[Rfam]
RNA: Small nucleolar RNA Z122
RNA sequence: GUUGGGAAAUGAUGAAAGUUACAACAGAUUAUCAACGGAGCUUUCAAUACUGAAUACAUCAUUUGCAUAUCAGUCUGAUCUGAAA
Numbered sequence: 001g002u003u004g005g006g007a008a009a010u011g012a013u014g015a016a017a018g019u020u021a022c023a024a025c026a027g028a029u030u031a032u033c034a035a036c037g038g039a040g041c042u043u044u045c046a047a048u049a050c051u052g053a054a055u056a057c058a059u060c061a062u063u064u065g066c067a068u069a070u071c072a073g074u075c076u077g078a079u080c081u082g083a084a085a
Stems, first nucleotide, its partner, number of pairs: 002084002005081003